This 359-nucleotide RNA sequence from Natranaerobius thermophilus belongs to the Rfam family "Bacterial RNase P class A". Rfam's curators put it in the seed alignment. Rfam classes the family as a ribozyme. Gene Ontology terms of the family: tRNA processing, ribonuclease P activity and dimeric ribonuclease P complex. The base pairs follow the family's consensus structure, which is taken from published work. NCBI's taxonomy places the organism under Bacteria, Bacillota, Natranaerobiales, Natranaerobius, Natranaerobius thermophilus.
RNA sequence: CAAGUAAGUCGGGUAGUCGCGAGGACAGUAAACUGUCUUCGAGGAAAGUCCGAGCUCCGUAGGGCAGGGUGCUGGGUAACACCCAGUGGGGGCGACCCCCAGGAAAGUGCCACAGAAACAAACCGCCAGGCUUCAAUCUGGUAAGGGUGAAAAGGUGCGGUAAGAGCGCACCAGCGGCCAGGUGACUGGUCGGCUAGGUAAACCCCACCCGGAGCAAGACCAAAUAGGGAAGGGAUGAAGUGGCCCGCUGACCUUCCGGGUUUGGUCGCUUGAGGUGUCAGGCGACUGGCACCCUAGAUAGAUGACUGCCACUCCCUCUAGGGGGAGGACAGAACUCGGCUUACAGACUUGCUUGUAAA
Dot-bracket structure: ((((((((((((((((((.(((((((((....)))))))))....[[[.[[[[[((((...[[[[.((((((((((.....)))))(((((....)))).)((...(((((...........((((((((......))))))..)).......((((((.......)))))).((((((((....))))))).)..)))..)))))))))))))...((((......((((((.....(((.]]]])))..))))))......))))......((((((((....))))))))..........)))))))........................]]]]]]]].).))))))))))....